[Rfam]
RNA sequence: ACUAAACACCUUUCACAACGGAUCGUCCGGCACGUACCUGCCGGUGAAGGAAUAUUAA
Numbered sequence: 001a002c003u004a005a006a007c008a009c010c011u012u013u014c015a016c017a018a019c020g021g022a023u024c025g026u027c028c029g030g031c032a033c034g035u036a037c038c039u040g041c042c043g044g045u046g047a048a049g050g051a052a053u054a055u056u057a058a
Stems, first nucleotide, its partner, number of pairs: 009050004014046002027044006